[Rfam]
RNA sequence: AGAGGCCCAUCUGCGGCCGGGCGCGGAACGCUUGCCUCAUCGCUGUGGCGACGGAGCAAGCAUUCCGCCAGGUCGCUCACGCUGCCCGC
Numbered sequence: 001a002g003a004g005g006c007c008c009a010u011c012u013g014c015g016g017c018c019g020g021g022c023g024c025g026g027a028a029c030g031c032u033u034g035c036c037u038c039a040u041c042g043c044u045g046u047g048g049c050g051a052c053g054g055a056g057c058a059a060g061c062a063u064u065c066c067g068c069c070a071g072g073u074c075g076c077u078c079a080c081g082c083u084g085c086c087c088g089c
Base pairs, nucleotide, nucleotide: 004086005085006084013076014075015074016073017072018071021069023068024067025066026065027064028063030061031060032059033058034057035056040051041050042049043048

This 89-nucleotide RNA from Cnephaeus nilssonii belongs to the Rfam family "mir-9195 microRNA precursor family". A search with the family's covariance model found it, with a score of 93 bits. The organism belongs to Cnephaeus, within Eukaryota.